[Rfam]
RNA sequence: CGCAAGUUUCAGGGCAGGGUGCAAUUCCCUACUGGCGGUGAUGGCACACGGCGGUUCGCGCCGGCCACAGCCCGCGACCCGCGAAAGCGGCUGAUCCGGUGGAAUUCCGGAGCCAACGGUAUAGUCCGGAUGAAAGAAACGAGGG
Number, nucleotide and partner (000 for none) at each position: 001c000002g000003c143004a000005a000006g140007u139008u138009u137010c136011a000012g000013g000014g000015c000016a000017g029018g028019g027020u000021g000022c000023a000024a000025u000026u000027c019028c018029c017030u000031a125032c124033u115034g114035g075036c074037g073038g072039u000040g000041a000042u000043g000044g000045c000046a000047c000048a000049c000050g000051g000052c000053g000054g000055u000056u000057c000058g000059c000060g000061c000062c000063g000064g000065c000066c000067a000068c000069a000070g113071c112072c038073c037074g036075c035076g000077a000078c000079c090080c089081g000082c000083g000084a000085a000086a000087g000088c000089g080090g079091c000092u000093g000094a000095u111096c110097c109098g108099g107100u000101g000102g000103a000104a000105u000106u000107c099108c098109g097110g096111a095112g071113c070114c034115a033116a000117c128118g127119g126120u000121a000122u000123a000124g032125u031126c119127c118128g117129g000130a000131u000132g000133a000134a000135a000136g010137a009138a008139a007140c006141g000142a000143g003144g000145g000
About this RNA: FMN riboswitch aptamer (RFN element): a 145-nucleotide sequence from Bifidobacterium primatium. The organism belongs to Bifidobacterium, within Bacteria. The family's consensus secondary structure is taken from published work. The family has 146 seed sequences and 6,230 matches in Rfam 15.1. Rfam links the family to the GO term FMN binding.